The family of this 76-nucleotide RNA from Myripristis murdjan is "U1A polyadenylation inhibition element (PIE)". It scores 75 bits against the family's covariance model. The base pairs follow the family's consensus structure, which is taken from published work. Rfam describes the family as follows. This family represents the U1A polyadenylation inhibition element (PIE). By type it is a cis-regulatory element.

RNA sequence: UCAUAAAGCAUUGCACCCAGAGUCUGGUUUACCAGACAUUGUACCUGGAGCUUUUUUUUUUUAUGUAAUUGAAAUU
Number, nucleotide and partner (000 for none) at each position: 001u000002c000003a000004u000005a054006a053007a052008g051009c050010a000011u000012u000013g000014c000015a000016c000017c048018c047019a046020g045021a000022g037023u036024c035025u034026g033027g000028u000029u000030u000031a000032c000033c026034a025035g024036a023037c022038a000039u000040u000041g000042u000043a000044c000045c020046u019047g018048g017049a000050g009051c008052u007053u006054u005055u000056u000057u000058u000059u000060u000061u000062u000063a000064u000065g000066u000067a000068a000069u000070u000071g000072a000073a000074a000075u000076u000